[Rfam]
A member of the RNA family "Small nucleolar RNA SNORA31" from Leucopsar rothschildi, 134 nucleotides long. Taxonomically the source falls in Leucopsar (Eukaryota, Sauropsida, Sauria, Passeriformes). Gene Ontology terms of the family: nucleolus and RNA processing. The match comes from Rfam's covariance-model search (56 bits). By type it is an H/ACA-box small nucleolar RNA. From the family's description: ACA31 (SNORA31) belongs to the H/ACA class of snoRNAs which are thought to guide the sites of modification of uridines to pseudouridines. ACA31 is predicted to guide the pseudouridylation of U3713 in 28S rRNA and U218 in 18S rRNA. This family includes the mouse homologue snoMBI-161.
RNA sequence: AUGCAUCUGUUUGACAGACCUGGAGCAAACACUUGCUUCUCGGGUUCUCUCUUGAGAUGCAACAGUAACAGGUUCCUUGCGCUUUCUGCCUGUCUGACCCCGUGGCAGUUCGGAUUGAAUAAAGGAACACAAAU
Numbered sequence: 001a002u003g004c005a006u007c008u009g010u011u012u013g014a015c016a017g018a019c020c021u022g023g024a025g026c027a028a029a030c031a032c033u034u035g036c037u038u039c040u041c042g043g044g045u046u047c048u049c050u051c052u053u054g055a056g057a058u059g060c061a062a063c064a065g066u067a068a069c070a071g072g073u074u075c076c077u078u079g080c081g082c083u084u085u086c087u088g089c090c091u092g093u094c095u096g097a098c099c100c101c102g103u104g105g106c107a108g109u110u111c112g113g114a115u116u117g118a119a120u121a122a123a124g125g126a127a128c129a130c131a132a133a134u
Stems, first nucleotide, its partner, number of pairs: 002061007013049001017046004023038006074126005082117001085114004090108005